This 45-nucleotide sequence from Pseudomonas sp. OIL-1 belongs to the Rfam family "Guanidine-II riboswitch aptamer (mini-ykkC)". Rfam links the family to the GO term regulation of gene expression. Simpler in structure and has fewer highly conserved nucleotide positions than the ykkC-yxkD leader. Despite this each of its two stem-loop structures directly bind free guanidine. Therefore, mini-ykkC RNA motif represents a distinct class of guanidine-sensing RNAs. Its crystal structure was also determined. A search with the family's covariance model found it, with a score of 42 bits. The organism belongs to Pseudomonas, within Bacteria.
RNA sequence: AACCACGGACGACCGUGGUGCAGAAGAUAAAAGCGGGACGGCCCG
Numbered sequence: 001a002a003c004c005a006c007g008g009a010c011g012a013c014c015g016u017g018g019u020g021c022a023g024a025a026g027a028u029a030a031a032a033g034c035g036g037g038a039c040g041g042c043c044c045g
Stems, first nucleotide, its partner, number of pairs: 002019007034045004
Dot-bracket structure: .(((((((....)))))))..............((((....))))